RNA sequence: CAAGUAAGCCAGAUAAUCGCUGCUGAUGUAAAUCAGGAGAGGAAAGUCCGAGCAUUAUAGAGCAGGGUGCUGGGUAACUCCCAGUGAGGGUGACCUUAAGGAAAGUGCAACAGAGAGAUACCGCCUCAAUUGAGGUAAGGGUGGAAAGGUGAGGUAAGAGCUCACCAGCGCAUUGGUGACUUUGCGGCUAUGUAAACCCCACUUGAUGCAAGGCCGAAUAGAGGGACAUGAAGAGGCUGCUCGUCUCGUCCCCGGGUGCGCCGCUUGAGUCCUUUAGUAAUACUGGACCUAGACAGAUGAUUAUCAAAUACAGAACUCGGCUUAUAGGUUUGCUUGCAAA
Number, nucleotide and partner (000 for none) at each position: 001c336002a335003a334004g333005u332006a331007a330008g329009c328010c327011a325012g305013a304014u303015a302016a301017u300018c299019g000020c039021u038022g000023c036024u035025g034026a033027u032028g000029u000030a000031a000032a027033u026034c025035a024036g023037g000038a021039g020040a000041g000042g000043a000044a323045a322046g321047u000048c320049c319050g318051a317052g316053c208054a207055u206056u205057a000058u000059a000060g242061a241062g240063c239064a000065g204066g203067g202068u201069g200070c084071u083072g082073g081074g080075u000076a000077a000078c000079u000080c074081c073082c072083a071084g070085u099086g097087a096088g095089g094090g000091u000092g000093a000094c089095c088096u087097u086098a000099a085100g199101g198102a000103a000104a000105g197106u196107g193108c192109a191110a000111c000112a000113g000114a000115g000116a000117g000118a000119u000120a000121c140122c139123g136124c135125c134126u133127c132128a000129a000130u000131u000132g127133a126134g125135g124136u123137a000138a000139g122140g121141g000142u000143g000144g000145a000146a000147a000148g166149g165150u164151g163152a162153g161154g000155u000156a000157a000158g000159a000160g000161c153162u152163c151164a150165c149166c148167a000168g188169c186170g185171c184172a183173u000174u000175g180176g000177u000178g000179a000180c175181u000182u000183u172184g171185c170186g169187g000188c168189u000190a000191u109192g108193u107194a000195a000196a106197c105198c101199c100200c069201a068202c067203u066204u065205g056206a055207u054208g053209c000210a000211a000212g262213g261214c260215c000216g000217a000218a000219u000220a000221g000222a000223g252224g251225g250226a249227c248228a000229u000230g000231a000232a000233g247234a246235g245236g244237c243238u000239g063240c062241u061242c060243g237244u236245c235246u234247c233248g227249u226250c225251c224252c223253c000254g000255g000256g000257u000258g000259c000260g214261c213262c212263g000264c000265u000266u000267g000268a000269g288270u287271c286272c285273u000274u000275u282276a281277g000278u000279a000280a000281u276282a275283c000284u000285g272286g271287a270288c269289c000290u000291a000292g000293a000294c000295a000296g000297a000298u000299g018300a017301u016302u015303a014304u013305c012306a000307a000308a000309u000310a000311c000312a000313g000314a000315a000316c052317u051318c050319g049320g048321c046322u045323u044324a000325u011326a000327g010328g009329u008330u007331u006332g005333c004334u003335u002336g001337c000338a000339a000340a000
Bacterial RNase P class A: a 340-nucleotide RNA sequence from Proteiniclasticum ruminis. Lineage of the source: Bacteria > Bacillati > Bacillota > Clostridiaceae > Proteiniclasticum. The literature on the family includes a 1998 paper in Annu Rev Biochem by Frank and Pace, "Ribonuclease P: unity and diversity in a tRNA processing ribozyme". It is annotated as a ribozyme.